The record is a 122-nucleotide RNA sequence, which matches "Flavobacterium-1 RNA" in Rfam. By type it is a small RNA.
RNA sequence: CAAGUUAGGGGUACAAAUCUUGCCUAUGAGCAUUUCCCUGGACCUAAGCAGUGACCUGAAAGGGUAGCGUCGAUACUUGGACCAGUUGCGCUGGCUUCCCUGAUCAGGAUUGCGCAACUGGU
Numbered sequence: 001c002a003a004g005u006u007a008g009g010g011g012u013a014c015a016a017a018u019c020u021u022g023c024c025u026a027u028g029a030g031c032a033u034u035u036c037c038c039u040g041g042a043c044c045u046a047a048g049c050a051g052u053g054a055c056c057u058g059a060a061a062g063g064g065u066a067g068c069g070u071c072g073a074u075a076c077u078u079g080g081a082c083c084a085g086u087u088g089c090g091c092u093g094g095c096u097u098c099c100c101u102g103a104u105c106a107g108g109a110u111u112g113c114g115c116a117a118c119u120g121g122u
Stems, first nucleotide, its partner, number of pairs: 001079005006073001008071001009045004014040002021032003048068002056064002082121010099108003